[Rfam]
RNA sequence: CUCCGGAAAGCCCUUUGGGCACCGAAGAGGCAAUUCCCUGUUUGGGGAAGAAUCUUUCAGGUUAUGAAACGGAG
Numbered sequence: 001c002u003c004c005g006g007a008a009a010g011c012c013c014u015u016u017g018g019g020c021a022c023c024g025a026a027g028a029g030g031c032a033a034u035u036c037c038c039u040g041u042u043u044g045g046g047g048a049a050g051a052a053u054c055u056u057u058c059a060g061g062u063u064a065u066g067a068a069a070c071g072g073a074g
Base pairs, nucleotide, nucleotide: 001074002073003072004071005070012019013018021062022061023060024058025057028056029055030054034049035048036047037046038045
Glycine riboswitch aptamer: a 74-nucleotide sequence from Caproiciproducens sp. NJN-50. The organism belongs to Caproiciproducens, within Bacteria. A search with the family's covariance model found it, with a score of 38 bits.